[Rfam]
RNA sequence: UCAAUAACCAUCUACUUUACCAACAGCCACCUUCACAGUAAUCAAAUCAGAGUAACCGCUAAGUGUCAAAAUGUCUCCCUGCUCCUGCAACUGCUGCUCCGGUGACUGCAACUCCUGCUCUUGCAGCUCUUGCAGCGUGAGUCGUU
Numbered sequence: 001u002c003a004a005u006a007a008c009c010a011u012c013u014a015c016u017u018u019a020c021c022a023a024c025a026g027c028c029a030c031c032u033u034c035a036c037a038g039u040a041a042u043c044a045a046a047u048c049a050g051a052g053u054a055a056c057c058g059c060u061a062a063g064u065g066u067c068a069a070a071a072u073g074u075c076u077c078c079c080u081g082c083u084c085c086u087g088c089a090a091c092u093g094c095u096g097c098u099c100c101g102g103u104g105a106c107u108g109c110a111a112c113u114c115c116u117g118c119u120c121u122u123g124c125a126g127c128u129c130u131u132g133c134a135g136c137g138u139g140a141g142u143c144g145u146u
Stems, first nucleotide, its partner, number of pairs: 080104004087097003108133003117124002